A member of the RNA family "FMN riboswitch aptamer (RFN element)" from Pseudoclavibacter sp. RFBA6, 127 nucleotides long.
RNA sequence: CACGUGCUCCGGGGUCGGUGUAAUUCCGAGCCGGCGGUUAUAGUCCGCGACCUGCUCCCGCAAGGGAGUGGCUGAUCUGGUGAAAUUCCGGAACCGACGGUGAAAGUCCGGAAGGGAGGCGCACGUG
Numbered sequence: 001c002a003c004g005u006g007c008u009c010c011g012g013g014g015u016c017g018g019u020g021u022a023a024u025u026c027c028g029a030g031c032c033g034g035c036g037g038u039u040a041u042a043g044u045c046c047g048c049g050a051c052c053u054g055c056u057c058c059c060g061c062a063a064g065g066g067a068g069u070g071g072c073u074g075a076u077c078u079g080g081u082g083a084a085a086u087u088c089c090g091g092a093a094c095c096g097a098c099g100g101u102g103a104a105a106g107u108c109c110g111g112a113a114g115g116g117a118g119g120c121g122c123a124c125g126u127g
Stems, first nucleotide, its partner, number of pairs: 003125005009119002016028003030107002032096002034048004043094002052071002076092005098110003
Annotation:
Rfam's curators write: The RFN element is a highly conserved domain that is found frequently in the 5'-untranslated regions of prokaryotic mRNAs that encode for flavin mononucleotide (FMN) biosynthesis and transport proteins.